The family of this 117-nucleotide RNA from Castanea mollissima is "Small nucleolar RNA Z278". The base pairs follow the family's consensus structure, which was predicted with PFOLD. For this family Rfam cites "The high diversity of snoRNAs in plants: identification and comparative study of 120 snoRNA genes from Oryza sativa" (Chen et al., Nucleic Acids Res, 2003). From the family's description: snoZ278 is a C/D box small nucleolar RNA. Its methylation guide targets have not been reported. Lineage of the source: Eukaryota > eudicotyledons > rosids > Fagaceae > Castanea.

[Rfam]
RNA sequence: GCCUAUGAUGAUCCAAUCCACCUUGUUGAGGUGUUGUGGAGCCGAGAUCCUGCCUAGCAGGGUGAACCUACUUGGUGAAGCUACACUUAAUAGGAAAGUAAUGGAUUUAACUGAGGC
Number, nucleotide and partner (000 for none) at each position: 001g117002c116003c115004u000005a000006u000007g000008a000009u000010g000011a000012u000013c000014c000015a000016a000017u000018c000019c000020a000021c000022c000023u000024u000025g000026u000027u000028g000029a000030g000031g000032u000033g000034u000035u000036g000037u000038g000039g000040a000041g000042c000043c000044g000045a000046g000047a000048u062049c061050c060051u059052g058053c000054c000055u000056a000057g000058c052059a051060g050061g049062g048063u000064g000065a000066a000067c000068c000069u000070a000071c000072u000073u000074g000075g000076u000077g000078a000079a000080g000081c000082u000083a000084c000085a000086c000087u000088u000089a000090a000091u000092a000093g000094g000095a000096a000097a000098g000099u000100a000101a000102u000103g000104g000105a000106u000107u000108u000109a000110a000111c000112u000113g000114a000115g003116g002117c001